[Rfam]
RNA sequence: GGUCCACGCUAGGGGUCCUGAAGACAAAUGUCUUUGGGUGAGAUGAAACCCUUGAACCUGACCUGGAUAAUGCCAGCGUAGGGAAGCGCAAAGCCACUCAA
Numbered sequence: 001g002g003u004c005c006a007c008g009c010u011a012g013g014g015g016u017c018c019u020g021a022a023g024a025c026a027a028a029u030g031u032c033u034u035u036g037g038g039u040g041a042g043a044u045g046a047a048a049c050c051c052u053u054g055a056a057c058c059u060g061a062c063c064u065g066g067a068u069a070a071u072g073c074c075a076g077c078g079u080a081g082g083g084a085a086g087c088g089c090a091a092a093g094c095c096a097c098u099c100a101a
Stems, first nucleotide, its partner, number of pairs: 007088004011052004016046001017038008057082004063076004
A member of the RNA family "TPP riboswitch aptamer (THI element)" from Herminiimonas fonticola, 101 nucleotides long. The match comes from Rfam's covariance-model search (62 bits). Rfam links the family to the GO term thiamine pyrophosphate binding. NCBI's taxonomy places the organism under Bacteria, Pseudomonadati, Pseudomonadota, Betaproteobacteria, Herminiimonas.